[Rfam]
Rfam assigns this 102-nucleotide sequence from Neobacillus thermocopriae to the family "Purine riboswitch aptamer". The organism belongs to Neobacillus, within Bacteria.
RNA sequence: AAUUUAAUAGAGAUGUACCUUCAUAUAUCCUCGAUAAUAGGGUUCGAGAGUCUCUACCAGGCCACCGUAAAUGGCCUGACUAUGAAGGCAGAAUUUAUAUUA
Numbered sequence: 001a002a003u004u005u006a007a008u009a010g011a012g013a014u015g016u017a018c019c020u021u022c023a024u025a026u027a028u029c030c031u032c033g034a035u036a037a038u039a040g041g042g043u044u045c046g047a048g049a050g051u052c053u054c055u056a057c058c059a060g061g062c063c064a065c066c067g068u069a070a071a072u073g074g075c076c077u078g079a080c081u082a083u084g085a086a087g088g089c090a091g092a093a094u095u096u097a098u099a100u101u102a
Base pairs, nucleotide, nucleotide: 018088019087020086021085022084023083024082025081030048031047032046033045034044058078059077060076061075062074063073064072